RNA sequence: GCGAUGAGCUGAUUUGUGUAAGACGAAGGACAAUGCAAUUCAUGUGGAUGUGAACACAUGGUCUUUCGCCACAAAUUUCGUAAAAGCGCCUGUACAGUAAAUGUAUAGGCGCU
Numbered sequence: 001g002c003g004a005u006g007a008g009c010u011g012a013u014u015u016g017u018g019u020a021a022g023a024c025g026a027a028g029g030a031c032a033a034u035g036c037a038a039u040u041c042a043u044g045u046g047g048a049u050g051u052g053a054a055c056a057c058a059u060g061g062u063c064u065u066u067c068g069c070c071a072c073a074a075a076u077u078u079c080g081u082a083a084a085a086g087c088g089c090c091u092g093u094a095c096a097g098u099a100a101a102u103g104u105a106u107a108g109g110c111g112c113u
Stems, first nucleotide, its partner, number of pairs: 014074005024068008041060002044057003085113012
BsrF: a 113-nucleotide RNA from Virgibacillus salinus.
Lineage of the source: Bacteria > Bacilli > Caryophanales > Bacillaceae > Virgibacillus.
By type it is a small RNA.
For this family Rfam cites "Novel small RNA-encoding genes in the intergenic regions of Bacillus subtilis" (Saito et al., Gene, 2008).